[Rfam]
RNA sequence: UGGGCGGUAUCCAAUUCGGAACGGCACCAUCUGACGAACGUUGUUUAAAUUGGAUGAUUACAAAUGAGCUGCCUUGAUCCAAAAAGGACUAGGACAGAGGG
Numbered sequence: 001u002g003g004g005c006g007g008u009a010u011c012c013a014a015u016u017c018g019g020a021a022c023g024g025c026a027c028c029a030u031c032u033g034a035c036g037a038a039c040g041u042u043g044u045u046u047a048a049a050u051u052g053g054a055u056g057a058u059u060a061c062a063a064a065u066g067a068g069c070u071g072c073c074u075u076g077a078u079c080c081a082a083a084a085a086g087g088a089c090u091a092g093g094a095c096a097g098a099g100g101g
Base pairs, nucleotide, nucleotide: 001029002028003027004025005024007022008021010020011019069097070096071095072093073092074091076089078088079087080086